This 132-nucleotide RNA sequence from Lipotes vexillifer belongs to the Rfam family "Small nucleolar RNA SNORA72". Rfam classes the family as an H/ACA-box small nucleolar RNA. Taxonomically the source falls in Lipotes (Eukaryota, Eumetazoa, Gnathostomata, Laurasiatheria).

[Rfam]
RNA sequence: CUGUGAGUAUUCUCGCUAUUCUGAUUUUGUAAUAAUCAGGGCAGGCUAAACAUUUGCGAUAUGCAGACCAUGCAUAUGUCCCCAGACCUAGUUUUUUCCCUAGGUCUAGUUCUAUAAAUGCUGAUGAUAACC
Dot-bracket structure: ..(((..........((.((((((((.......)))))))).))..........))).........(.((.((........(.((((((((........)))))))).)..........)))).).......